[Rfam]
RNA sequence: GAUAUGAAAAAGGGGAGCCUGCGUAAGCAGGCUGAGAGUAAGCUGGUAUUGCUUAGACCCGUAACCUGAUUUGGAUAAUGCCAACGUAGGGAGAUAUGGAAGCAGACUU
Numbered sequence: 001g002a003u004a005u006g007a008a009a010a011a012g013g014g015g016a017g018c019c020u021g022c023g024u025a026a027g028c029a030g031g032c033u034g035a036g037a038g039u040a041a042g043c044u045g046g047u048a049u050u051g052c053u054u055a056g057a058c059c060c061g062u063a064a065c066c067u068g069a070u071u072u073g074g075a076u077a078a079u080g081c082c083a084a085c086g087u088a089g090g091g092a093g094a095u096a097u098g099g100a101a102g103c104a105g106a107c108u109u
Base pairs, nucleotide, nucleotide: 006097008095012060013059014058017032018031019030020029021028039055040054041053042052043051065090066089067088068087071084072083073082074081
Dot-bracket structure: .....(.(...(((..(((((......)))))......(((((.......)))))..)))....((((..((((......))))..))))....).)............
The record is a 109-nucleotide RNA from Faecalicatena orotica, which matches "TPP riboswitch aptamer (THI element)" in Rfam.